[Rfam]
The family of this 196-nucleotide sequence from Drosophila grimshawi is "U2 spliceosomal RNA". Its family is annotated with pre-mRNA branch point binding, U2 snRNP and mRNA branch site recognition in the Gene Ontology. Rfam classes the family as a spliceosomal small nuclear RNA. The family is grouped with related families in Rfam's "U2 clan". The base pairs follow the family's consensus structure, which is taken from published work.
RNA sequence: AUCGCUUCUCGGCCUUAUGGCUAAGAUCAAAGUGUAGUAUCUGUUCUUAUCAGCUUAACAUCUGAUAGAUCCUCCAUCGGAGGACAACAAAUGUUAAACUGAUUUUUGGAAAUAGACGGAGUGCUAGGAGCUUGCUCCACCUCUGUCGCGGGUUGGCCUGGCAUUGCAGUACCGCCAGGAUUUCGGCCCAACUAAU
Dot-bracket structure: ......(((.((((....)))).))).....................((((((........))))))..((((((...))))))..............................(((((((.....((((....))))..)))))))..((((((.((((((...........))))))....)))))).......
Numbered sequence: 001a002u003c004g005c006u007u008c009u010c011g012g013c014c015u016u017a018u019g020g021c022u023a024a025g026a027u028c029a030a031a032g033u034g035u036a037g038u039a040u041c042u043g044u045u046c047u048u049a050u051c052a053g054c055u056u057a058a059c060a061u062c063u064g065a066u067a068g069a070u071c072c073u074c075c076a077u078c079g080g081a082g083g084a085c086a087a088c089a090a091a092u093g094u095u096a097a098a099c100u101g102a103u104u105u106u107u108g109g110a111a112a113u114a115g116a117c118g119g120a121g122u123g124c125u126a127g128g129a130g131c132u133u134g135c136u137c138c139a140c141c142u143c144u145g146u147c148g149c150g151g152g153u154u155g156g157c158c159u160g161g162c163a164u165u166g167c168a169g170u171a172c173c174g175c176c177a178g179g180a181u182u183u184c185g186g187c188c189c190a191a192c193u194a195a196u
Stems, first nucleotide, its partner, number of pairs: 007026003011022004048067006070084006115147007127138004150189006157179006